MIR4374 microRNA precursor family: a 119-nucleotide RNA from Glycine soja. The family's consensus secondary structure was predicted with RNAalifold. The source organism's lineage runs through Eukaryota, Spermatophyta, rosids, Fabales and Glycine subgen. Soja. The match comes from Rfam's covariance-model search (111 bits).
RNA sequence: CAAGGACAGUGUUUAUCUCAACAACGUCUUUGAAAGUAGACAUUCAAAGACGAUGCUUACCUCAGCAACGUCUUAGAAUGCCUACUUUCAAAGAUGGUGUUGAGGUAAGCAUCGUCUUU
Number, nucleotide and partner (000 for none) at each position: 001c000002a000003a000004g117005g116006a115007c114008a000009g112010u111011g110012u109013u108014u107015a106016u105017c104018u103019c102020a101021a000022c099023a098024a000025c096026g095027u094028c093029u092030u091031u090032g089033a088034a087035a086036g085037u084038a083039g082040a000041c080042a079043u078044u077045c076046a000047a074048a073049g072050a071051c070052g069053a000054u067055g066056c065057u064058u000059a000060c000061c000062u000063c000064a057065g056066c055067a054068a000069c052070g051071u050072c049073u048074u047075a000076g045077a044078a043079u042080g041081c000082c039083u038084a037085c036086u035087u034088u033089c032090a031091a030092a029093g028094a027095u026096g025097g000098u023099g022100u000101u020102g019103a018104g017105g016106u015107a014108a013109g012110c011111a010112u009113c000114g007115u006116c005117u004118u000119u000